Rfam assigns this 255-nucleotide RNA from Onychostoma macrolepis to the family "RNase MRP". Rfam's curators write: RNase MRP is an enzymatically active ribonucleoprotein with two distinct roles in eukaryotes. The source organism's lineage runs through Eukaryota, Deuterostomia, Vertebrata, Ostariophysi and Onychostoma.
Nucleotides: 255
Stems, first nucleotide, its partner, number of pairs: 002255004007250002011247002015208005023067007038053001040051003072240002075238004087098004099113004104108001115180001117178001122176005129170004137165004147158003210225004215220001
Number, partner (000 for none) and nucleotide at each position: 001000g002255c003254g004253c005252a006000u007250g008249c009000c010000u011247g012246a013000a014000a015208a016207c017206u018205u019204g020000u021000a022000a023067c024066c025065u026064a027063a028062g029061c030000u031000a032000c033000g034000c035000a036000c037000g038053g039000g040051g041050a042049a043000c044000c045000u046000c047000g048000u049042u050041u051040c052000g053038c054000c055000a056000u057000c058000a059000u060000u061029g062028c063027u064026u065025g066024g067023g068000g069000g070000a071000a072240a073239g074000u075238c076237c077236c078235c079000g080000g081000a082000c083000u084000c085000u086000g087098g088097g089096c090095a091000g092000a093000g094000a095090u096089g097088u098087c099113c100112u101111g102110c103000a104108u105000g106000c107000a108104g109000c110102g111101c112100a113099g114000g115180u116000c117178g118000u119000g120000g121000u122176u123175u124174g125173c126172g127000u128000a129170g130169c131168g132167u133000g134000u135000c136000a137165a138164u139163g140162c141000u142000a143000a144000g145000a146000c147158g148157u149156c150000c151000u152000g153000u154000g155000u156149g157148a158147c159000a160000g161000a162140g163139u164138g165137u166000a167132a168131c169130g170129c171000u172126u173125g174124c175123a176122a177000u178117c179000c180115a181000g182000g183000u184000u185000u186000g187000u188000c189000a190000a191000u192000g193000a194000a195000a196000u197000a198000g199000a200000u201000a202000u203000u204019c205018a206017a207016g208015u209000g210225a211224a212223g213222c214000a215220c216000a217000c218000g219000c220215g221000c222213g223212c224211u225210u226000c227000u228000a229000c230000a231000g232000a233000a234000c235078g236077g237076g238075g239073c240072u241000c242000a243000u244000u245000c246012u247011c248000a249008g250007c251000u252005u253004g254003c255002g